[Rfam]
RNA sequence: ACAUCUGGCGCAGAAUCACUCCACCAACAUGAUCUGCGUACAAUGAAAAAGGAGGUAUGUCCCUUGCCGCGUGGCUCGCGGUGCGGCAGUGUGGAGACCUGUCGUAAUGCGUCACGUCCCUCCGCGGACGGACGCGAGGCGGAUACGGGUGGGCCGUUCCGCCAGAGCUGAGAGUAUGUCC
Numbered sequence: 001a002c003a004u005c006u007g008g009c010g011c012a013g014a015a016u017c018a019c020u021c022c023a024c025c026a027a028c029a030u031g032a033u034c035u036g037c038g039u040a041c042a043a044u045g046a047a048a049a050a051g052g053a054g055g056u057a058u059g060u061c062c063c064u065u066g067c068c069g070c071g072u073g074g075c076u077c078g079c080g081g082u083g084c085g086g087c088a089g090u091g092u093g094g095a096g097a098c099c100u101g102u103c104g105u106a107a108u109g110c111g112u113c114a115c116g117u118c119c120c121u122c123c124g125c126g127g128a129c130g131g132a133c134g135c136g137a138g139g140c141g142g143a144u145a146c147g148g149g150u151g152g153g154c155c156g157u158u159c160c161g162c163c164a165g166a167g168c169u170g171a172g173a174g175u176a177u178g179u180c181c
Stems, first nucleotide, its partner, number of pairs: 008039006015033004067081004072170006082106008091098002109135005115130003138163006148155002
malK-I RNA: a 181-nucleotide sequence. The sequence is in the family's curated seed alignment. It is annotated as a cis-regulatory element.